[Rfam]
RNA sequence: UAAUUAUGAAGGCAAACUUAUCGAAAGCUAAGGACGCAAAACCAUGGGUCUAAGGACAUAUCUUGUCUAUGAUUGCCAGGCUGCUAGA
Numbered sequence: 001u002a003a004u005u006a007u008g009a010a011g012g013c014a015a016a017c018u019u020a021u022c023g024a025a026a027g028c029u030a031a032g033g034a035c036g037c038a039a040a041a042c043c044a045u046g047g048g049u050c051u052a053a054g055g056a057c058a059u060a061u062c063u064u065g066u067c068u069a070u071g072a073u074u075g076c077c078a079g080g081c082u083g084c085u086a087g088a
Stems, first nucleotide, its partner, number of pairs: 012037002017032004022027001040082001042080002045078003048073003055067004